[Rfam]
RNA sequence: GGGUCUCUCUUAGUAGACCAGAUAGAGCCUGGGAGCUCUCUGGCUAGUAAGGGAACCCAU
Numbered sequence: 001g002g003g004u005c006u007c008u009c010u011u012a013g014u015a016g017a018c019c020a021g022a023u024a025g026a027g028c029c030u031g032g033g034a035g036c037u038c039u040c041u042g043g044c045u046a047g048u049a050a051g052g053g054a055a056c057c058c059a060u
Stems, first nucleotide, its partner, number of pairs: 001058004006054007014046003018043005025038004
RNA: Trans-activation response element (TAR)